[Rfam]
RNA: Manganese Mn2+ riboswitch aptamer (yybP-ykoY)
Organism: Rubrivivax gelatinosus
RNA sequence: GCACUCGUCAUCGGGGAGUAGCCGCCCUGCCGCCCGGCAGGGGUCCGCGCCAACACGCUUGGCCCUUCACGGGCCAUGGUCCGGACAGCUCCCAGCCUGGCAAGACCGUUGACUGCGCCGACUUCCGCAUUCGGGCCGGGGUCGCGGCGUGGUCACGUUCCGGUUUGCCGGCCCGC
Numbered sequence: 001g002c003a004c005u006c007g008u009c010a011u012c013g014g015g016g017a018g019u020a021g022c023c024g025c026c027c028u029g030c031c032g033c034c035c036g037g038c039a040g041g042g043g044u045c046c047g048c049g050c051c052a053a054c055a056c057g058c059u060u061g062g063c064c065c066u067u068c069a070c071g072g073g074c075c076a077u078g079g080u081c082c083g084g085a086c087a088g089c090u091c092c093c094a095g096c097c098u099g100g101c102a103a104g105a106c107c108g109u110u111g112a113c114u115g116c117g118c119c120g121a122c123u124u125c126c127g128c129a130u131u132c133g134g135g136c137c138g139g140g141g142u143c144g145c146g147g148c149g150u151g152g153u154c155a156c157g158u159u160c161c162g163g164u165u166u167g168c169c170g171g172c173c174c175g176c
Stems, first nucleotide, its partner, number of pairs: 026041003043086005049080004060076005093175001